Shown here is a 116-nucleotide sequence from Brachypodium distachyon, a member of the family "MIR5070 microRNA precursor family". A search with the family's covariance model found it, with a score of 114 bits. The base pairs follow the family's consensus structure, which was predicted with RNAalifold. The organism belongs to Brachypodium, within Eukaryota.
[Rfam]
RNA sequence: CAAGAUACCCUUUAACCCUUCUUAGUUCAACCAAAUGAACUAACAAUUUAAAAUGACACAACUUUUUGAAAAACUAAUUCAUUUGGUUGAACUAAGGAGGGUCAAAGGGUAUCCUG
Dot-bracket structure: .(.((((((((((.(((((((((((((((((((((((((.((................................)).))))))))))))))))))))))))).)))))))))).).
Numbered sequence: 001c002a003a004g005a006u007a008c009c010c011u012u013u014a015a016c017c018c019u020u021c022u023u024a025g026u027u028c029a030a031c032c033a034a035a036u037g038a039a040c041u042a043a044c045a046a047u048u049u050a051a052a053a054u055g056a057c058a059c060a061a062c063u064u065u066u067u068g069a070a071a072a073a074c075u076a077a078u079u080c081a082u083u084u085g086g087u088u089g090a091a092c093u094a095a096g097g098a099g100g101g102u103c104a105a106a107g108g109g110u111a112u113c114c115u116g
Stems, first nucleotide, its partner, number of pairs: 002115001004113010015102025041076002